Rfam assigns this 139-nucleotide sequence from Bacillus sp. 1NLA3E to the family "Ribosomal protein L10 leader". Pairs were carried over by alignment from the consensus structure, which was predicted with CMfinder. Taxonomically the source falls in Bacillus (Bacteria, Bacillati, Caryophanales, Bacillaceae). It scores 91 bits against the family's covariance model.
RNA sequence: AAUUAUAUAACAUUUGUACCGCAGACAGUAGGUGUCAACUUGACUUAAUAUCCUACCGAGGUCAUACGAUAGAUUUUAAGAUUCACUAUUGUAUACAAUCCUCCAUGUCUGCUCGACGUGGAGGUUUUUUAUUGGCCGG
Numbered sequence: 001a002a003u004u005a006u007a008u009a010a011c012a013u014u015u016g017u018a019c020c021g022c023a024g025a026c027a028g029u030a031g032g033u034g035u036c037a038a039c040u041u042g043a044c045u046u047a048a049u050a051u052c053c054u055a056c057c058g059a060g061g062u063c064a065u066a067c068g069a070u071a072g073a074u075u076u077u078a079a080g081a082u083u084c085a086c087u088a089u090u091g092u093a094u095a096c097a098a099u100c101c102u103c104c105a106u107g108u109c110u111g112c113u114c115g116a117c118g119u120g121g122a123g124g125u126u127u128u129u130u131a132u133u134g135g136c137c138g139g
Stems, first nucleotide, its partner, number of pairs: 028056005034044003100124010